Rfam assigns this 239-nucleotide RNA sequence from Colletotrichum salicis to the family "Small nucleolar RNA snR191". NCBI's taxonomy places the organism under Eukaryota, Opisthokonta, Fungi, Colletotrichum, Colletotrichum acutatum species complex. Gene Ontology terms of the family: RNA processing and nucleolus. For this family Rfam cites "A snoRNA that guides the two most conserved pseudouridine modifications within rRNA confers a growth advantage in yeast" (Badis et al., RNA, 2003).
RNA sequence: ACCCCAGUGUCUUUGUCAGGAAGCGUUCCGCGCUCUUUUGAGUGCUUACAAUGGAAGUUCUCCGUUAAACACUGGGAAAAUCGAGGGCUGUCUCGCUGUCCUGGUCCUUGGAUCAGGGCUGAUGGGGUCCGUUUUGGAUUUCCUAUCAUGAGACAGAAUUGCUUCCGAUGAGUUGAAGUCUGCCAGUGCUCUUCCGAGCCUUUCGAUGGUGGUAUUUCUUAGUAGUGAAGCAUACACAC
Numbered sequence: 001a002c003c004c005c006a007g008u009g010u011c012u013u014u015g016u017c018a019g020g021a022a023g024c025g026u027u028c029c030g031c032g033c034u035c036u037u038u039u040g041a042g043u044g045c046u047u048a049c050a051a052u053g054g055a056a057g058u059u060c061u062c063c064g065u066u067a068a069a070c071a072c073u074g075g076g077a078a079a080a081u082c083g084a085g086g087g088c089u090g091u092c093u094c095g096c097u098g099u100c101c102u103g104g105u106c107c108u109u110g111g112a113u114c115a116g117g118g119c120u121g122a123u124g125g126g127g128u129c130c131g132u133u134u135u136g137g138a139u140u141u142c143c144u145a146u147c148a149u150g151a152g153a154c155a156g157a158a159u160u161g162c163u164u165c166c167g168a169u170g171a172g173u174u175g176a177a178g179u180c181u182g183c184c185a186g187u188g189c190u191c192u193u194c195c196g197a198g199c200c201u202u203u204c205g206a207u208g209g210u211g212g213u214a215u216u217u218c219u220u221a222g223u224a225g226u227g228a229a230g231c232a233u234a235c236a237c238a239c
Base pairs, nucleotide, nucleotide: 003076004075005074006073007072019063020062021061022059023058024057026055027054028053030045031044032043033042034041088156089155090154091153092152096121098119099118100117101116102115104113105112106111125141126140127139128138129137130136131135160232161231162230164228165227175218176217177216178215181211182210183209184208190197191196